[Rfam]
RNA sequence: CUACAAUAGCUUCCUAUCUCAAAGGUGGUCGGCUCACCCCUAGAAAAGAAAUGUCAGAGGGGGGUGAGAACAUGGAGGUUUAUCAAGCGCUGUCCCUGAUGUUUAUGUUUGGGAUGUUCCUGUUAGCUUUGUUAACCUACCUGAAAAAGAAAUGACCUCAUGCUGUGCACAAAGCACAGGAGGUCAUUUCUUGUCUAUAGCUGAUGAGCUGAUUCAUCGAAGAGAAUCAACUAUUGUAGAAGGCUGUGAGUGCGGCAACACUCACG
Number, nucleotide and partner (000 for none) at each position: 001c239002u238003a237004c236005a235006a000007u233008a232009g231010c000011u229012u000013c000014c000015u211016a210017u000018c208019u207020c206021a000022a164023a000024g000025g163026u000027g157028g156029u155030c154031g000032g000033c000034u067035c066036a065037c064038c063039c062040c061041u060042a000043g000044a000045a000046a000047a000048g000049a000050a000051a000052u000053g000054u000055c000056a000057g000058a000059g000060g041061g040062g039063g038064g037065u036066g035067a034068g000069a000070a000071c000072a000073u000074g136075g000076a000077g133078g132079u131080u000081u000082a000083u000084c000085a000086a000087g102088c101089g100090c000091u000092g000093u000094c000095c000096c000097u000098g000099a000100u089101g088102u087103u000104u000105a000106u000107g000108u000109u000110u000111g128112g127113g000114a000115u000116g000117u000118u000119c000120c000121u000122g000123u000124u000125a000126g000127c112128u111129u000130u000131g079132u078133u077134a000135a000136c074137c000138u000139a000140c000141c000142u000143g000144a000145a000146a000147a000148a000149g000150a000151a000152a000153u000154g030155a029156c028157c027158u000159c000160a000161u000162g000163c025164u022165g000166u000167g000168c000169a000170c000171a000172a000173a000174g000175c000176a000177c000178a191179g190180g189181a000182g000183g000184u000185c000186a000187u000188u000189u180190c179191u178192u000193g000194u000195c000196u000197a000198u000199a000200g000201c000202u000203g000204a000205u000206g020207a019208g018209c000210u016211g015212a227213u226214u225215c224216a000217u000218c000219g000220a000221a000222g000223a000224g215225a214226a213227u212228c000229a011230a000231c009232u008233a007234u000235u005236g004237u003238a002239g001240a000241a000242g000243g000244c000245u266246g265247u264248g263249a262250g261251u260252g259253c000254g000255g000256c000257a000258a000259c252260a251261c250262u249263c248264a247265c246266g245
RNA: BsrG
Organism: Brevibacillus laterosporus